[Rfam]
RNA sequence: UGGUGCCCAACAGUGGGGUUCGAGUAGAGGGAUUCAGUGAAGAACACCACAGUGUUUUUGUCUGGCCAGAUUUUGUGUGGAAGACAUCUUGUGAGGGAACCUGCUGCCUUGACUAAGGAUUCUGGUAAGUUUGUGGUGAUUAUGGGACAGGCAUUGAGUAGCCGUGAAUUAUUGAGUAGCCGUAGAAAGUUUAAAAAGGGCUUUAAAGGCGCAAGGGAUAAAGGUCAAAAUAUAUGAUUUGCUUACAUUUUUUGAUUUUGUUAAGGAGUUUUGCCCAU
Numbered sequence: 001u002g003g004u005g006c007c008c009a010a011c012a013g014u015g016g017g018g019u020u021c022g023a024g025u026a027g028a029g030g031g032a033u034u035c036a037g038u039g040a041a042g043a044a045c046a047c048c049a050c051a052g053u054g055u056u057u058u059u060g061u062c063u064g065g066c067c068a069g070a071u072u073u074u075g076u077g078u079g080g081a082a083g084a085c086a087u088c089u090u091g092u093g094a095g096g097g098a099a100c101c102u103g104c105u106g107c108c109u110u111g112a113c114u115a116a117g118g119a120u121u122c123u124g125g126u127a128a129g130u131u132u133g134u135g136g137u138g139a140u141u142a143u144g145g146g147a148c149a150g151g152c153a154u155u156g157a158g159u160a161g162c163c164g165u166g167a168a169u170u171a172u173u174g175a176g177u178a179g180c181c182g183u184a185g186a187a188a189g190u191u192u193a194a195a196a197a198g199g200g201c202u203u204u205a206a207a208g209g210c211g212c213a214a215g216g217g218a219u220a221a222a223g224g225u226c227a228a229a230a231u232a233u234a235u236g237a238u239u240u241g242c243u244u245a246c247a248u249u250u251u252u253u254g255a256u257u258u259u260g261u262u263a264a265g266g267a268g269u270u271u272u273g274c275c276c277a278u
Base pairs, nucleotide, nucleotide: 006031007030008029014026015025037047038046085124086123087117093107095105096104131150132149133148134147137145138143155205156204157203158201159200212254213253214252215251216250217249218248219247222240223239224238225237226236227235263278265276266275

The record is a 278-nucleotide sequence from Mus spicilegus, which matches "Mason-Pfizer monkey virus packaging signal" in Rfam. It is annotated as a cis-regulatory element. Lineage of the source: Eukaryota > Eumetazoa > Craniata > Teleostomi > Mus. Gene Ontology term of the family: viral genome packaging. The base pairs follow the family's consensus structure, which was predicted with PFOLD.